[Rfam]
RNA sequence: UGCGAGGCCGCGAUCGGCUCGCGCUAUAGGCGCCGGUCACCCGGUGUCCGGCGUCCCGUGUAGUCACGUUGCUCAUAGGAGGAUGUGGUGAUGAGGA
Numbered sequence: 001u002g003c004g005a006g007g008c009c010g011c012g013a014u015c016g017g018c019u020c021g022c023g024c025u026a027u028a029g030g031c032g033c034c035g036g037u038c039a040c041c042c043g044g045u046g047u048c049c050g051g052c053g054u055c056c057c058g059u060g061u062a063g064u065c066a067c068g069u070u071g072c073u074c075a076u077a078g079g080a081g082g083a084u085g086u087g088g089u090g091a092u093g094a095g096g097a
Stems, first nucleotide, its partner, number of pairs: 001023006008017002030054007038046002055095001057093003064088007072081003
Dot-bracket structure: ((((((.((......))))))))......(((((((.((.....)).)))))))(.(((....(((((((.(((....))))))))))..))).)..
This 97-nucleotide RNA from Methylobacterium gnaphalii belongs to the Rfam family "Repression of heat shock gene expression (ROSE) element". The family's RNA type in Rfam is RNA thermoregulator. A reference for the family is Balsiger et al. (2004), "Replicon-specific regulation of small heat shock genes in Agrobacterium tumefaciens", J Bacteriol. NCBI's taxonomy places the organism under Bacteria, Pseudomonadati, Pseudomonadota, Hyphomicrobiales, Methylobacterium. Rfam's curators write: This family represents a 5' UTR cis-regulatory element found in heat shock mRNAs and is known as the ROSE (repression of heat shock gene expression) element. The ROSE element is a negative regulator of heat shock gene expression.